The record is a 59-nucleotide RNA sequence, which matches "Actino-pnp RNA" in Rfam.
Pairs were carried over by alignment from the consensus structure, which is taken from published work.
By type it is a cis-regulatory element.
RNA sequence: AUUGGUCCUCGGUAGUGGUUUCCGGAAAUGAUUUCCGUGAACUUCGAUCGAAGAUCCAU
Number, nucleotide and partner (000 for none) at each position: 001a059002u058003u000004g056005g055006u054007c053008c000009u051010c050011g049012g048013u047014a000015g000016u000017g043018g042019u041020u040021u039022c000023c037024g036025g035026a034027a033028a032029u000030g000031a000032u028033u027034u026035c025036c024037g023038u000039g021040a020041a019042c018043u017044u000045c000046g000047a013048u012049c011050g010051a009052a000053g007054a006055u005056c004057c000058a002059u001